[Rfam]
RNA sequence: UUCUUAUCAAGAGAGAUGGAGGGACUGGCCCGAUGAAAUCUCGGCAGCGGAACUAUUAAGUUACUGUGCCAAAUCCAGCAAGCAAUGUUCUUGAUAGAUAAGAG
Numbered sequence: 001u002u003c004u005u006a007u008c009a010a011g012a013g014a015g016a017u018g019g020a021g022g023g024a025c026u027g028g029c030c031c032g033a034u035g036a037a038a039u040c041u042c043g044g045c046a047g048c049g050g051a052a053c054u055a056u057u058a059a060g061u062u063a064c065u066g067u068g069c070c071a072a073a074u075c076c077a078g079c080a081a082g083c084a085a086u087g088u089u090c091u092u093g094a095u096a097g098a099u100a101a102g103a104g
Stems, first nucleotide, its partner, number of pairs: 001104008013042005021031003025078004043070004048066003052062001074096001079093004
The record is a 104-nucleotide RNA sequence, which matches "SAM riboswitch aptamer (S box leader)" in Rfam. Rfam's curators put it in the seed alignment. The family's consensus secondary structure is taken from published work.